[Rfam]
Nucleotides: 133
Stems, first nucleotide, its partner, number of pairs: 015124007023116001034094001039089001041087002046059001067082006
Number, partner (000 for none) and nucleotide at each position: 001000c002000c003000g004000g005000g006000c007000a008000c009000g010000g011000a012000u013000c014000g015124g016123a017122g018121g019120u020119g021118g022000a023116u024000g025000a026000g027000a028000u029000c030000c031000a032000c033000c034094g035000c036000u037000g038000g039089u040000u041087c042086g043000g044000c045000g046059a047000u048000g049000a050000g051000g052000c053000g054000a055000a056000g057000c058000c059046u060000c061000a062000u063000c064000g065000u066000g067082c068081g069080c070079g071078c072077c073000g074000a075000c076000a077072g078071g079070c080069g081068c082067g083000g084000c085000c086042c087041g088000c089039a090000g091000g092000g093000c094034c095000a096000a097000g098000g099000c100000g101000c102000g103000u104000a105000g106000c107000g108000c109000c110000g111000c112000a113000g114000c115000c116023a117000u118021c119020c120019a121018c122017c123016u124015c125000c126000c127000u128000c129000c130000a131000c132000c133000a
RtT RNA: a 133-nucleotide RNA sequence from Lysobacter sp. N42. It is annotated as a cis-regulatory element. Lineage of the source: Bacteria > Pseudomonadati > Gammaproteobacteria > Lysobacteraceae > Lysobacter. Rfam 15.1 lists 651 matches to the family in 204 species. Pairs were carried over by alignment from the consensus structure, which is taken from published work. Gene Ontology term of the family: cellular response to amino acid starvation.